[Rfam]
RNA sequence: GGCCAUCAUCAUGAGAAGGGCUGGCGCCCUCGCCAACCUGCCAACCGCGGCAAGGUGGCACCUAUUACGGGAUGUGGCGGCAUCUUUGCAGACCGCGAAGAUGGCGCAAACA
Dot-bracket structure: ......((((....(.(((((....))))))(((..((((((......))).))).)))...........))))..(((.........................))).....
Shown here is a 112-nucleotide RNA sequence from Cohaesibacter sp. CAU 1516, a member of the family "SAM-I/IV (S-adenosyl methionine) riboswitch aptamer". Rfam 15.1 lists 567 matches to the family in 508 species. Clan: SAM clan. Taxonomically the source falls in Cohaesibacter (Bacteria, Pseudomonadota, Alphaproteobacteria, Cohaesibacteraceae).